[Rfam]
Clostridiales-2 RNA: an 82-nucleotide sequence from Oceanirhabdus seepicola.
RNA sequence: AAAAUGAAGGGGUUGUAGGGGAAGUAUUUCCCCUACCGGUUUAAGGAGGGGGGUCAGCAACGUUAGUUGCGUCGAGGGGAAC
Numbered sequence: 001a002a003a004a005u006g007a008a009g010g011g012g013u014u015g016u017a018g019g020g021g022a023a024g025u026a027u028u029u030c031c032c033c034u035a036c037c038g039g040u041u042u043a044a045g046g047a048g049g050g051g052g053g054u055c056a057g058c059a060a061c062g063u064u065a066g067u068u069g070c071g072u073c074g075a076g077g078g079g080a081a082c
Base pairs, nucleotide, nucleotide: 015036016035017034018033019032020031021030022029057070058069059068060067061066
Dot-bracket structure: ..............((((((((......))))))))....................(((((....)))))............